[Rfam]
RNA sequence: UCGCGGGACCGGGCCCCUCUGGCGCGGCGCAGCGGCCUUCUGGCUUUUGCGUCGCGUGAUGUCGGACCGCAUCG
Dot-bracket structure: .....((.((((.........(((((.(((((..............))))).)))))....)))).))......
Rfam assigns this 74-nucleotide RNA from Tsuneonella litorea to the family "terC RNA". The family has 129 seed sequences and 1,112 matches in Rfam 15.1. A search with the family's covariance model found it, with a score of 57 bits.